Overview:
The family of this 76-nucleotide RNA from Oscillatoria sp. FACHB-1407 is "Glutamine riboswitch aptamer (glnA leader)". Taxonomically the source falls in Oscillatoria (Bacteria, Bacillati, Oscillatoriophycideae, Oscillatoriales). Rfam links the family to the GO term glutamine binding. A reference for the family is Ames and Breaker (2011), "Bacterial aptamers that selectively bind glutamine", RNA Biol.

[Rfam]
RNA sequence: AUCGUUCAUCCCCUUUGUGCGCCUUUGACUGCGUAGUAGGUGGACGGAAGUAGGGGCACCCCCGAAGGAACGCGCU
Numbered sequence: 001a002u003c004g005u006u007c008a009u010c011c012c013c014u015u016u017g018u019g020c021g022c023c024u025u026u027g028a029c030u031g032c033g034u035a036g037u038a039g040g041u042g043g044a045c046g047g048a049a050g051u052a053g054g055g056g057c058a059c060c061c062c063c064g065a066a067g068g069a070a071c072g073c074g075c076u
Base pairs, nucleotide, nucleotide: 003072004071005070006069007068009044010043011042013040014039015038047073053063054062055061